RNA sequence: UUCUUAUCUAGAGAGGUGGAGGGACUGGCCCUUUGAAGCCUCGGCAACGGGUCAACAGACGCUGUGCCAAUUCCAGCAAGCUAUCACUUGAAAGAUGAGAA
Numbered sequence: 001u002u003c004u005u006a007u008c009u010a011g012a013g014a015g016g017u018g019g020a021g022g023g024a025c026u027g028g029c030c031c032u033u034u035g036a037a038g039c040c041u042c043g044g045c046a047a048c049g050g051g052u053c054a055a056c057a058g059a060c061g062c063u064g065u066g067c068c069a070a071u072u073c074c075a076g077c078a079a080g081c082u083a084u085c086a087c088u089u090g091a092a093a094g095a096u097g098a099g100a101a
Stems, first nucleotide, its partner, number of pairs: 001101008013042005021031003025076004043068004048064002051060003072093001077090004
Notes:
This 101-nucleotide RNA sequence from Halobacillus halophilus belongs to the Rfam family "SAM riboswitch aptamer (S box leader)". From the family's description: The SAM riboswitch is found upstream of a number of genes which code for proteins involved in methionine or cysteine biosynthesis in Gram-positive bacteria. The SAM riboswitch acts at the level of transcription termination control. The predicted structure consists of a complex stem-loop region followed by a single stem loop terminator region. An alternative and mutually exclusive form involves bases in the 3' segment of helix 1 with those in the 5' region of helix 5 to form a structure termed the anti-terminator form. This entry represents the conserved core of the complex structure involving helices 1-4. The base pairs follow the family's consensus structure, which is taken from published work.